[Rfam]
RNA sequence: AGUGAAGAUAGAGGUGCGGACCUCAAGAGUAAGACCUGGAGAAGAAUGGGAUUCGAUGAAGGGUUCAGAAAGGGUUGUCCGCCGAAGUGAGGGAAGACUCAUAGCUUUCCUUGCUGGUUCUGUGUUGAAUAAAUGCAGGAUUGUCAAGAUGGAUGCGUCUUGGAGAGCUAUCUCACUG
Numbered sequence: 001a002g003u004g005a006a007g008a009u010a011g012a013g014g015u016g017c018g019g020a021c022c023u024c025a026a027g028a029g030u031a032a033g034a035c036c037u038g039g040a041g042a043a044g045a046a047u048g049g050g051a052u053u054c055g056a057u058g059a060a061g062g063g064u065u066c067a068g069a070a071a072g073g074g075u076u077g078u079c080c081g082c083c084g085a086a087g088u089g090a091g092g093g094a095a096g097a098c099u100c101a102u103a104g105c106u107u108u109c110c111u112u113g114c115u116g117g118u119u120c121u122g123u124g125u126u127g128a129a130u131a132a133a134u135g136c137a138g139g140a141u142u143g144u145c146a147a148g149a150u151g152g153a154u155g156c157g158u159c160u161u162g163g164a165g166a167g168c169u170a171u172c173u174c175a176c177u178g
Stems, first nucleotide, its partner, number of pairs: 006173006016082006024074001033066001034064004086115011116142011144163007
Description
This 178-nucleotide RNA sequence from Mesobacillus foraminis belongs to the Rfam family "Lysine riboswitch aptamer". The match comes from Rfam's covariance-model search (126 bits). Rfam's curators write: Riboswitches are metabolite binding domains within certain messenger RNAs that serve as precision sensors for their corresponding targets. Allosteric rearrangement of mRNA structure is mediated by ligand binding, and this results in modulation of gene expression. This family includes riboswitches that sense lysine in a number of genes involved in lysine metabolism, including lysC. Pairs were carried over by alignment from the consensus structure, which is taken from published work. Lineage of the source: Bacteria > Bacillati > Bacillota > Bacillaceae > Mesobacillus.